[Rfam]
RNA sequence: AUGUCAUCCCGUGAGGUGACGAAGACGCAGAUAUAUAUGAAAUUCUUUAAAUAUUGGGAUAACCAUGUUUUAAAGAUGUCUUACUCUGAGAGCCUAUUGCUGUA
Numbered sequence: 001a002u003g004u005c006a007u008c009c010c011g012u013g014a015g016g017u018g019a020c021g022a023a024g025a026c027g028c029a030g031a032u033a034u035a036u037a038u039g040a041a042a043u044u045c046u047u048u049a050a051a052u053a054u055u056g057g058g059a060u061a062a063c064c065a066u067g068u069u070u071u072a073a074a075g076a077u078g079u080c081u082u083a084c085u086c087u088g089a090g091a092g093c094c095u096a097u098u099g100c101u102g103u104a
Base pairs, nucleotide, nucleotide: 002021003020004019005018006017009016010015027103028102029101030100033097034096035095044076045075046074047073048072049071050070051069078093079092081090082089
Streptococcus sRNA SpF44: a 104-nucleotide RNA from Streptococcus infantis. The organism belongs to Streptococcus infantis, within Bacteria. Pairs were carried over by alignment from the consensus structure, which was predicted with mfold. It is annotated as a small RNA. The sequence is in the family's curated seed alignment.